Rfam assigns this 77-nucleotide RNA from Crocodylus porosus to the family "Mammalian CPEB3 ribozyme". A search with the family's covariance model found it, with a score of 41 bits. Lineage of the source: Eukaryota > Craniata > Crocodylia > Longirostres > Crocodylus. The family's consensus secondary structure is taken from published work. About the family: The mammalian CPEB3 ribozyme is a self cleaving RNA located in the second intron of the CPEB3 gene which belongs to a family of genes regulating messenger RNA polyadenylation.
RNA sequence: AGUUGCAAGUUUGAGGCCAUAGCAGAAGCACUCAUAGAGUAACCCUGUCAGCUUCCAAUGAAUCUGCAAAUUCUGCU
Numbered sequence: 001a002g003u004u005g006c007a008a009g010u011u012u013g014a015g016g017c018c019a020u021a022g023c024a025g026a027a028g029c030a031c032u033c034a035u036a037g038a039g040u041a042a043c044c045c046u047g048u049c050a051g052c053u054u055c056c057a058a059u060g061a062a063u064c065u066g067c068a069a070a071u072u073c074u075g076c077u
Stems, first nucleotide, its partner, number of pairs: 013045001015044002021077007028040002049066003053062003